[Rfam]
RNA sequence: GGGGAGCACCUAAGAGCUGAGAUGCUACCCGAUACAACCUUCCUAGAGAAAACUCUGUAGUUUCCUGCUUGUAGUGCUUAAGCAAUCCUGCAAGCCUCAAAUGUUCAGAGACAUGA
Numbered sequence: 001g002g003g004g005a006g007c008a009c010c011u012a013a014g015a016g017c018u019g020a021g022a023u024g025c026u027a028c029c030c031g032a033u034a035c036a037a038c039c040u041u042c043c044u045a046g047a048g049a050a051a052a053c054u055c056u057g058u059a060g061u062u063u064c065c066u067g068c069u070u071g072u073a074g075u076g077c078u079u080a081a082g083c084a085a086u087c088c089u090g091c092a093a094g095c096c097u098c099a100a101a102u103g104u105u106c107a108g109a110g111a112c113a114u115g116a
Base pairs, nucleotide, nucleotide: 001030002029003028005026006025007024008023010021011020054109055108056107067095068094069093070092071091072090073089074088076086078085
RNA: Small nucleolar RNA snoR104
Organism: Populus trichocarpa